[Rfam]
RNA sequence: UAUCUUUGCCGCCUGAUUGAAACCCAGUCAGGUACAUAAAAAUCAUUUAAAACAAUAUUGGAAUG
Numbered sequence: 001u002a003u004c005u006u007u008g009c010c011g012c013c014u015g016a017u018u019g020a021a022a023c024c025c026a027g028u029c030a031g032g033u034a035c036a037u038a039a040a041a042a043u044c045a046u047u048u049a050a051a052a053c054a055a056u057a058u059u060g061g062a063a064u065g
Stems, first nucleotide, its partner, number of pairs: 014030006
S15-Flavobacteria ribosomal protein leader: a 65-nucleotide RNA sequence from Croceivirga radicis. Rfam's curators put it in the seed alignment. Rfam classes the family as a cis-regulatory leader.